[Rfam]
RNA sequence: GGGGGACAUACAAGAGCUAGAAUGUCAACCCGAUACAGUCUUCCUACAUUAAGUUUGUCAUUUCCUGCUUGUGGUGCUAACAGAAAGUGCUGCAGGUCUCAAGAGACAAAACAUUUUC
Numbered sequence: 001g002g003g004g005g006a007c008a009u010a011c012a013a014g015a016g017c018u019a020g021a022a023u024g025u026c027a028a029c030c031c032g033a034u035a036c037a038g039u040c041u042u043c044c045u046a047c048a049u050u051a052a053g054u055u056u057g058u059c060a061u062u063u064c065c066u067g068c069u070u071g072u073g074g075u076g077c078u079a080a081c082a083g084a085a086a087g088u089g090c091u092g093c094a095g096g097u098c099u100c101a102a103g104a105g106a107c108a109a110a111a112c113a114u115u116u117u118c
Stems, first nucleotide, its partner, number of pairs: 001031003005026005011020001054111003067097008076088003
RNA: Small nucleolar RNA snoR104
Organism: Ananas comosus